[Rfam]
RNA: mt-5S-like P. polycephalum
Organism: Badhamia polycephala
RNA sequence: UUUAGCAAGCACCUUUGUGUAAACUCUGUAUAAAGAGUAAAAUAUACAAAAUUGACGUGAUUAACCGAAAUCGGAAAAGCACUAAUGUUUGUUAAAUC
Numbered sequence: 001u002u003u004a005g006c007a008a009g010c011a012c013c014u015u016u017g018u019g020u021a022a023a024c025u026c027u028g029u030a031u032a033a034a035g036a037g038u039a040a041a042a043u044a045u046a047c048a049a050a051a052u053u054g055a056c057g058u059g060a061u062u063a064a065c066c067g068a069a070a071u072c073g074g075a076a077a078a079g080c081a082c083u084a085a086u087g088u089u090u091g092u093u094a095a096a097u098c
Stems, first nucleotide, its partner, number of pairs: 001096010014050008023038005051086004057082003061078002065074003